[Rfam]
RNA sequence: GGUGGUGCAGUGAUGAGUAUAUUUGGACUAGAGUUUCUGAACAGCGGCUCGUCUUGAGCUGUUGCUUUGAAGACAACCCUUGGCUGUCUGAGCGCCAUC
Numbered sequence: 001g002g003u004g005g006u007g008c009a010g011u012g013a014u015g016a017g018u019a020u021a022u023u024u025g026g027a028c029u030a031g032a033g034u035u036u037c038u039g040a041a042c043a044g045c046g047g048c049u050c051g052u053c054u055u056g057a058g059c060u061g062u063u064g065c066u067u068u069g070a071a072g073a074c075a076a077c078c079c080u081u082g083g084c085u086g087u088c089u090g091a092g093c094g095c096c097a098u099c
Stems, first nucleotide, its partner, number of pairs: 001099008034072004042064010
RNA: Small nucleolar RNA Z157/R69/R10
Organism: Adiantum capillus-veneris